[Rfam]
RNA sequence: UAACUCUGAUUUCUCUUCAGAGUAUGUAAAUCUUUUGCUUUUUACCAAAGAUUUCCAUGGAAAGAUAUUGAGUUUUUAGCCAAUUUUUGAGGCCUUAUUUCUAUGAGGC
Number, nucleotide and partner (000 for none) at each position: 001u000002a000003a073004c072005u071006c070007u000008g000009a068010u067011u000012u065013c064014u063015c000016u061017u060018c059019a058020g000021a000022g000023u000024a000025u000026g000027u000028a054029a053030a052031u051032c050033u049034u048035u047036u000037g000038c000039u000040u000041u000042u000043u000044a000045c000046c000047a035048a034049a033050g032051a031052u030053u029054u028055c000056c000057a000058u019059g018060g017061a016062a000063a014064g013065a012066u000067a010068u009069u000070g006071a005072g004073u003074u000075u000076u000077u000078a000079g000080c000081c000082a000083a000084u000085u000086u000087u000088u000089g000090a000091g109092g000093c108094c107095u106096u105097a104098u103099u000100u000101c000102u000103a098104u097105g096106a095107g094108g093109c091
Source information
A member of the RNA family "U5 spliceosomal RNA" from Neomonachus schauinslandi, 109 nucleotides long. It scores 70 bits against the family's covariance model. Rfam classes the family as a spliceosomal small nuclear RNA. The organism belongs to Neomonachus, within Eukaryota. The base pairs follow the family's consensus structure, which is taken from published work. For this family Rfam cites "The uRNA database" (Zwieb, Nucleic Acids Res, 1997).